[Rfam]
RNA sequence: ACUGCACAUUUGAGGCCAUAGCAGAAGUGCUUGCAGUGUGGCCGUGUCAGAUUCCAGUGAAUCUGCAAAUUCUGCU
Numbered sequence: 001a002c003u004g005c006a007c008a009u010u011u012g013a014g015g016c017c018a019u020a021g022c023a024g025a026a027g028u029g030c031u032u033g034c035a036g037u038g039u040g041g042c043c044g045u046g047u048c049a050g051a052u053u054c055c056a057g058u059g060a061a062u063c064u065g066c067a068a069a070u071u072c073u074g075c076u
Base pairs, nucleotide, nucleotide: 014043015042016041017040020076021075022074023073024072025071026070027039028038029037048065049064050063051062052061053060054059

Rfam assigns this 76-nucleotide sequence from Crocodylus porosus to the family "Mammalian CPEB3 ribozyme". NCBI's taxonomy places the organism under Eukaryota, Deuterostomia, Dipnotetrapodomorpha, Crocodylidae, Crocodylus.